This 90-nucleotide RNA from Rhodoferax lacus belongs to the Rfam family "SAH (S-adenosyl-L-homocysteine) riboswitch aptamer". Taxonomically the source falls in Rhodoferax (Bacteria, Betaproteobacteria, Burkholderiales, Comamonadaceae). Pairs were carried over by alignment from the consensus structure, which is taken from published work.
RNA sequence: CCAUCCGAGGAGCGUUGCAGUUCACACCCGUGAACGAGGCUCGGACCCGGUGGCUCACCCGAUCCACCGCACCAACGGCGCUCACCCACU
Dot-bracket structure: ...(((((............(((((....)))))......))))).............................................